Record summary:
A member of the RNA family "mir-9/mir-79 microRNA precursor family" from Leptidea sinapis, 75 nucleotides long.
RNA sequence: GGCUAAUUGUCUUUGGUUAUCUAGCUGUAUGAGUAUUUUGACGUCAUAAAGCUAGGUUACCGGAGUUAAGGGCCU
Numbered sequence: 001g002g003c004u005a006a007u008u009g010u011c012u013u014u015g016g017u018u019a020u021c022u023a024g025c026u027g028u029a030u031g032a033g034u035a036u037u038u039u040g041a042c043g044u045c046a047u048a049a050a051g052c053u054a055g056g057u058u059a060c061c062g063g064a065g066u067u068a069a070g071g072g073c074c075u
Stems, first nucleotide, its partner, number of pairs: 001075002004072001007069003011065007019057008028048005
The source organism's lineage runs through Eukaryota, Dicondylia, Aparaglossata, Papilionoidea and Leptidea.